This 74-nucleotide sequence belongs to the Rfam family "Small nucleolar RNA snoR60". The family is grouped with related families in Rfam's "SNORD101 clan".

RNA sequence: CGGCAGAUGAUGAUUUUACUUGGAUUCCCCUUCAGAACAUUUAUGGGUGUUGCAAACUCCAAGCUUCUGAUGCU
Number, nucleotide and partner (000 for none) at each position: 001c000002g074003g073004c072005a071006g000007a000008u000009g000010a000011u000012g000013a000014u000015u000016u000017u000018a000019c000020u000021u000022g000023g000024a000025u000026u000027c000028c000029c000030c000031u000032u000033c000034a000035g000036a000037a000038c000039a000040u000041u000042u000043a000044u000045g000046g000047g000048u000049g000050u000051u000052g000053c000054a000055a000056a000057c000058u000059c000060c000061a000062a000063g000064c000065u000066u000067c000068u000069g000070a000071u005072g004073c003074u002